[Rfam]
RNA sequence: ACGUUAUCAAGAAAGGUGGAGGGAUUAGACCCUAUGAAACCUUAGCAACCCUUUAUUCUUAUUUAAAGAAGGUGCUACAUUCUACUACGUUGUUACAUACAACACGGCAGAUAACUC
Numbered sequence: 001a002c003g004u005u006a007u008c009a010a011g012a013a014a015g016g017u018g019g020a021g022g023g024a025u026u027a028g029a030c031c032c033u034a035u036g037a038a039a040c041c042u043u044a045g046c047a048a049c050c051c052u053u054u055a056u057u058c059u060u061a062u063u064u065a066a067a068g069a070a071g072g073u074g075c076u077a078c079a080u081u082c083u084a085c086u087a088c089g090u091u092g093u094u095a096c097a098u099a100c101a102a103c104a105c106g107g108c109a110g111a112u113a114a115c116u117c
Base pairs, nucleotide, nucleotide: 003115004114005113006112007111008110013043014042015041016040017039021032022031023030026087027086028085029081044076045075046074047073049072050071051068052067053066054065080109088106089105090104093101
Record summary: The record is a 117-nucleotide RNA from Cellulophaga lytica, which matches "SAM riboswitch aptamer (S box leader)" in Rfam. Lineage of the source: Bacteria > Pseudomonadati > Flavobacteriaceae > Cellulophaga > Cellulophaga lytica. The SAM riboswitch is found upstream of a number of genes which code for proteins involved in methionine or cysteine biosynthesis in Gram-positive bacteria. It scores 71 bits against the family's covariance model. The family's consensus secondary structure is taken from published work.